[Rfam]
RNA sequence: UUAGUGUAGGCUUUAGCUAUUGAACUGUUUUGUCCCUCUCUGUCAAAGAACAAUUUGUUCUCCGUCAAAGAGUGACAAAACAGUUCAAUAGCUAAAGCGUCCACAAUU
Numbered sequence: 001u002u003a004g005u006g007u008a009g010g011c012u013u014u015a016g017c018u019a020u021u022g023a024a025c026u027g028u029u030u031u032g033u034c035c036c037u038c039u040c041u042g043u044c045a046a047a048g049a050a051c052a053a054u055u056u057g058u059u060c061u062c063c064g065u066c067a068a069a070g071a072g073u074g075a076c077a078a079a080a081c082a083g084u085u086c087a088a089u090a091g092c093u094a095a096a097g098c099g100u101c102c103a104c105a106a107u108u
Base pairs, nucleotide, nucleotide: 002106004104005103006102011097012096013095014094015093016092017091018090019089020088021087022086023085024084025083026082027081028080029069030068031067032066034064049059050058051057052056
Overview:
The family of this 108-nucleotide RNA sequence from Plutella xylostella is "mir-8517 microRNA precursor family". Pairs were carried over by alignment from the consensus structure, which was predicted with RNAalifold. Its family is annotated with RISC complex and miRNA-mediated post-transcriptional gene silencing in the Gene Ontology. The match comes from Rfam's covariance-model search (100 bits).